[Rfam]
This 73-nucleotide RNA sequence from Chaetops frenatus belongs to the Rfam family "mir-196 microRNA precursor family". For this family Rfam cites "New microRNAs from mouse and human" (Lagos-Quintana et al., RNA, 2003). Taxonomically the source falls in Chaetops (Eukaryota, Tetrapoda, Sauria, Telluraves).
RNA sequence: UCUGUGGAUUAGGUAGUUUCAUGUUGUUGGGCUCCUUUCAGACGCAAGGACAUCAAACUACCUGAUUUACUGC
Numbered sequence: 001u002c003u004g005u006g007g008a009u010u011a012g013g014u015a016g017u018u019u020c021a022u023g024u025u026g027u028u029g030g031g032c033u034c035c036u037u038u039c040a041g042a043c044g045c046a047a048g049g050a051c052a053u054c055a056a057a058c059u060a061c062c063u064g065a066u067u068u069a070c071u072g073c
Stems, first nucleotide, its partner, number of pairs: 004070016022052004027047003031043001